[Rfam]
RNA sequence: GAUAGCCGUAGAUGAUGGCUGGGUUGAGGGUCGGCUCCGUCACCACACGGACAGUCUGACUGCCCACAUCAUAGAGUCCACCCCAGACUGUGGCUUUAGCAACCAGCAGCAAGGCUCCCAUGCCUAAAAAGAGAAGAUGGUGUCCCAAAAUCAGCCCCAAUUGCCUGGGAUCAUUCCA
Numbered sequence: 001g002a003u004a005g006c007c008g009u010a011g012a013u014g015a016u017g018g019c020u021g022g023g024u025u026g027a028g029g030g031u032c033g034g035c036u037c038c039g040u041c042a043c044c045a046c047a048c049g050g051a052c053a054g055u056c057u058g059a060c061u062g063c064c065c066a067c068a069u070c071a072u073a074g075a076g077u078c079c080a081c082c083c084c085a086g087a088c089u090g091u092g093g094c095u096u097u098a099g100c101a102a103c104c105a106g107c108a109g110c111a112a113g114g115c116u117c118c119c120a121u122g123c124c125u126a127a128a129a130a131g132a133g134a135a136g137a138u139g140g141u142g143u144c145c146c147a148a149a150a151u152c153a154g155c156c157c158c159a160a161u162u163g164c165c166u167g168g169g170a171u172c173a174u175u176c177c178a
Stems, first nucleotide, its partner, number of pairs: 136175006144169004
The family of this 178-nucleotide RNA sequence from Leptolyngbya sp. 'hensonii' is "Antisense RNA which regulates isiA expression". The source organism's lineage runs through Bacteria, Bacillati, Cyanobacteriota, Leptolyngbyaceae and Leptolyngbya. A reference for the family is Duhring et al. (2006), "An internal antisense RNA regulates expression of the photosynthesis gene isiA", Proc Natl Acad Sci U S A. Rfam 15.1 lists 3,397 matches to the family in 659 species. The family's consensus secondary structure was predicted with PFOLD.